[Rfam]
RNA sequence: CUGGCGGCACACGACUGGCGCAGGUGGGUCACCACCGGGGAGUGACGUCGGGGUGCAUCGCCCGCCUGGGUGCGCCUC
Numbered sequence: 001c002u003g004g005c006g007g008c009a010c011a012c013g014a015c016u017g018g019c020g021c022a023g024g025u026g027g028g029u030c031a032c033c034a035c036c037g038g039g040g041a042g043u044g045a046c047g048u049c050g051g052g053g054u055g056c057a058u059c060g061c062c063c064g065c066c067u068g069g070g071u072g073c074g075c076c077u078c
Base pairs, nucleotide, nucleotide: 001051002050003049004048005047006046008044009043010042015039016038017066018065019064020063024035025034026033027032055073056072057071058070059069
The record is a 78-nucleotide RNA sequence from Janibacter melonis, which matches "ZMP/ZTP riboswitch aptamer (pfl RNA motif)" in Rfam. The organism belongs to Janibacter, within Bacteria.